[Rfam]
RNA sequence: GUCUAUAUGCUAUAUAUAGUUGAGACAGCACAGUUUAUGUGGUGGCUAAUCCCAAUAGAAAUGGGGUGAGGCCUAUGUUGAUUUGUAACUUGCUCCCUAGAAAGGAUAAGCUUGUCUGUUUUUGAAGCGCUAAUGUUUGUAAUAGCUUUUGCAACGUUAGGUCUGACAACCAGCAA
Dot-bracket structure: .........................................((.((................(((((((.((............))...)))))).)................((..((.(.....).))..))................)).))....((........)).....